A member of the RNA family "Small nucleolar RNA snoR2/U65" from Castanea mollissima, 149 nucleotides long.
By type it is an H/ACA-box small nucleolar RNA.
For this family Rfam cites "Localization and processing from a polycistronic precursor of novel snoRNAs in maize" (Shaw et al., J Cell Sci, 1998).
[Rfam]
RNA sequence: GGUCCGAUGCCACGUCGCCGAGAGCUAUUACAGCGGUGAUCGGUGAUGCUAUGAUUGGACCAAGAGCGAUUCGUUGUUUCGCAUCUUGAUAGGAACCUGUGGAUCUCAUAAAACAUUGGUCCACGGAGCCGUUUUGUGCGAUUACAUUU
Numbered sequence: 001g002g003u004c005c006g007a008u009g010c011c012a013c014g015u016c017g018c019c020g021a022g023a024g025c026u027a028u029u030a031c032a033g034c035g036g037u038g039a040u041c042g043g044u045g046a047u048g049c050u051a052u053g054a055u056u057g058g059a060c061c062a063a064g065a066g067c068g069a070u071u072c073g074u075u076g077u078u079u080c081g082c083a084u085c086u087u088g089a090u091a092g093g094a095a096c097c098u099g100u101g102g103a104u105c106u107c108a109u110a111a112a113a114c115a116u117u118g119g120u121c122c123a124c125g126g127a128g129c130c131g132u133u134u135u136g137u138g139c140g141a142u143u144a145c146a147u148u149u
Stems, first nucleotide, its partner, number of pairs: 002060007009052001013048006020041002024034003079141005092130002097126003101122005

Record summary: The family's consensus secondary structure was predicted with WAR. The source organism's lineage runs through Eukaryota, Tracheophyta, Euphyllophyta, Magnoliopsida and Castanea.